The record is a 289-nucleotide sequence from Lachnellula arida, which matches "Fungal signal recognition particle RNA" in Rfam. Clan: SRP clan. The literature on the family includes a 2002 paper in Curr Opin Struct Biol by Wild et al., "Towards the structure of the mammalian signal recognition particle". The base pairs follow the family's consensus structure, which is taken from published work. The family has 50 seed sequences and 748 matches in Rfam 15.1. Gene Ontology terms of the family: signal recognition particle, endoplasmic reticulum targeting, SRP-dependent cotranslational protein targeting to membrane, signal sequence recognition and signal recognition particle, plasma membrane targeting.

RNA sequence: UGGCUGUAAUGGUCACAAGGUUAAGAAGAUAUCAGCAUCCCAUAUCUUUCUAACCAUUUCGACCUUCGGGUCACCACCAACAGUGCCCAGUUCGAACACGGCGGUGGCUUCCCACUCGUGCAGGUAACUCACGAUGCUGGUGGAGCCUUAAGCAAUGAAGAACAAUUCUCGAGGGAGGCCUUACUCUGCAGAGAAAUCCUCACCGUCGGGUGGCGGUAUUGGAUUACACUUGUUGCGUGGUUUGGUUAUAGGAUUUGGGUUGAGCGUCGACUUUCUUUUUUGGCUUUUU
Numbered sequence: 001u002g003g004c005u006g007u008a009a010u011g012g013u014c015a016c017a018a019g020g021u022u023a024a025g026a027a028g029a030u031a032u033c034a035g036c037a038u039c040c041c042a043u044a045u046c047u048u049u050c051u052a053a054c055c056a057u058u059u060c061g062a063c064c065u066u067c068g069g070g071u072c073a074c075c076a077c078c079a080a081c082a083g084u085g086c087c088c089a090g091u092u093c094g095a096a097c098a099c100g101g102c103g104g105u106g107g108c109u110u111c112c113c114a115c116u117c118g119u120g121c122a123g124g125u126a127a128c129u130c131a132c133g134a135u136g137c138u139g140g141u142g143g144a145g146c147c148u149u150a151a152g153c154a155a156u157g158a159a160g161a162a163c164a165a166u167u168c169u170c171g172a173g174g175g176a177g178g179c180c181u182u183a184c185u186c187u188g189c190a191g192a193g194a195a196a197u198c199c200u201c202a203c204c205g206u207c208g209g210g211u212g213g214c215g216g217u218a219u220u221g222g223a224u225u226a227c228a229c230u231u232g233u234u235g236c237g238u239g240g241u242u243u244g245g246u247u248a249u250a251g252g253a254u255u256u257g258g259g260u261u262g263a264g265c266g267u268c269g270a271c272u273u274u275c276u277u278u279u280u281u282g283g284c285u286u287u288u289u
Stems, first nucleotide, its partner, number of pairs: 001015004017287008025277002028274002036262002039259003044254004049250001061072004075239003078235005083229003087222005092216003096211002099208006106147001108145004112140003116134005122129002148152001156202003160198002166195005175186003